[Rfam]
Purine riboswitch aptamer: a 100-nucleotide RNA from Vibrio navarrensis. The base pairs follow the family's consensus structure, which is taken from published work.

RNA sequence: ACUUUGCCUCGAUCAAUGCUUCAUAUAAUCCUAAUGAUAUGGUUUGGGAGUUUCUACCAAGAGCCUUAAACUCUUGAUUAUGAAGUCUGUAACUUUAUAC
Numbered sequence: 001a002c003u004u005u006g007c008c009u010c011g012a013u014c015a016a017u018g019c020u021u022c023a024u025a026u027a028a029u030c031c032u033a034a035u036g037a038u039a040u041g042g043u044u045u046g047g048g049a050g051u052u053u054c055u056a057c058c059a060a061g062a063g064c065c066u067u068a069a070a071c072u073c074u075u076g077a078u079u080a081u082g083a084a085g086u087c088u089g090u091a092a093c094u095u096u097a098u099a100c
Stems, first nucleotide, its partner, number of pairs: 018086008029049006058076006
Description:
Rfam 15.1 lists 4,097 matches to the family in 1,411 species. From the family's description: Riboswitches are metabolite binding domains within certain messenger RNAs that serve as precision sensors for their corresponding targets.